[Rfam]
RNA sequence: GUAGAUCUGUUGUGUGCCGGUGGUUUCGUUUGAGGUAUGUUAACUCUGCCGAGAAAUUGCCGCCUAAAACGGGUCUCCCUUCACACAAUUUCGGCUUUCUAGAACCAAAGCCAUUAGUGUGACGGCCAUCUGGGC
Numbered sequence: 001g002u003a004g005a006u007c008u009g010u011u012g013u014g015u016g017c018c019g020g021u022g023g024u025u026u027c028g029u030u031u032g033a034g035g036u037a038u039g040u041u042a043a044c045u046c047u048g049c050c051g052a053g054a055a056a057u058u059g060c061c062g063c064c065u066a067a068a069a070c071g072g073g074u075c076u077c078c079c080u081u082c083a084c085a086c087a088a089u090u091u092c093g094g095c096u097u098u099c100u101a102g103a104a105c106c107a108a109a110g111c112c113a114u115u116a117g118u119g120u121g122a123c124g125g126c127c128a129u130c131u132g133g134g135c
Base pairs, nucleotide, nucleotide: 003076004075005074006073007072008071009070018062019061020060021059022058024056025055026054027053034050035049036048037047091109094106096104097103

This 135-nucleotide RNA from Sulfurimonas marina belongs to the Rfam family "purD RNA motif". NCBI's taxonomy places the organism under Bacteria, Epsilonproteobacteria, Campylobacterales, Sulfurimonadaceae, Sulfurimonas. By type it is a cis-regulatory element. It scores 81 bits against the family's covariance model.